[Rfam]
Rfam assigns this 58-nucleotide RNA from Carica papaya to the family "MIR8139 microRNA precursor family".
Its family is annotated with RISC complex and miRNA-mediated post-transcriptional gene silencing in the Gene Ontology.
RNA sequence: UCCUGGCUGAGGACGGGUGUUGAAGCUCAUUUCCACGAUCUGUGCCUUUGCUAGGACU
Numbered sequence: 001u002c003c004u005g006g007c008u009g010a011g012g013a014c015g016g017g018u019g020u021u022g023a024a025g026c027u028c029a030u031u032u033c034c035a036c037g038a039u040c041u042g043u044g045c046c047u048u049u050g051c052u053a054g055g056a057c058u
Stems, first nucleotide, its partner, number of pairs: 001056007009048004013043006019036002022033004
The organism belongs to Carica, within Eukaryota. The base pairs follow the family's consensus structure, which was predicted with RNAalifold. The sequence is in the family's curated seed alignment.